RNA sequence: CUGAGUCUGUGAUGAUUAAAGUUAUCCCUGUCUGAAGGCAAAGGCCUUUCUGUGUGGAUUGUGGAUCUCUGAAACUCAG
Numbered sequence: 001c002u003g004a005g006u007c008u009g010u011g012a013u014g015a016u017u018a019a020a021g022u023u024a025u026c027c028c029u030g031u032c033u034g035a036a037g038g039c040a041a042a043g044g045c046c047u048u049u050c051u052g053u054g055u056g057g058a059u060u061g062u063g064g065a066u067c068u069c070u071g072a073a074a075c076u077c078a079g
Stems, first nucleotide, its partner, number of pairs: 001079006
RNA: Small nucleolar RNA R38
Organism: Cavia porcellus